[Rfam]
RNA sequence: GGCUGUAUGAAGCAGAGAGGAUGCGUUGCGGACGCGGGUUCGAUUCCCGCCAGCUCCACCACCUGUGCACCAGCCUUGGUGCCCAGCUGAAGGGGCUGCACUGGUUUCGACGUGGCGAGCAGUCAAUGUGGACAGCCCGAGAGGCGACCGACGUAAUCGGCGCAAAAACUGUAAUCGCCAAUGCUGAUUACUACGAUCAGAACGAACAGGACACCCUGCUCGCAGCCUGA
Numbered sequence: 001g002g003c004u005g006u007a008u009g010a011a012g013c014a015g016a017g018a019g020g021a022u023g024c025g026u027u028g029c030g031g032a033c034g035c036g037g038g039u040u041c042g043a044u045u046c047c048c049g050c051c052a053g054c055u056c057c058a059c060c061a062c063c064u065g066u067g068c069a070c071c072a073g074c075c076u077u078g079g080u081g082c083c084c085a086g087c088u089g090a091a092g093g094g095g096c097u098g099c100a101c102u103g104g105u106u107u108c109g110a111c112g113u114g115g116c117g118a119g120c121a122g123u124c125a126a127u128g129u130g131g132a133c134a135g136c137c138c139g140a141g142a143g144g145c146g147a148c149c150g151a152c153g154u155a156a157u158c159g160g161c162g163c164a165a166a167a168a169c170u171g172u173a174a175u176c177g178c179c180a181a182u183g184c185u186g187a188u189u190a191c192u193a194c195g196a197u198c199a200g201a202a203c204g205a206a207c208a209g210g211a212c213a214c215c216c217u218g219c220u221c222g223c224a225g226c227c228u229g230a
Stems, first nucleotide, its partner, number of pairs: 001137005015124001024117003028113003034050005051098007138153002
RNA: permuted transfer-messenger RNA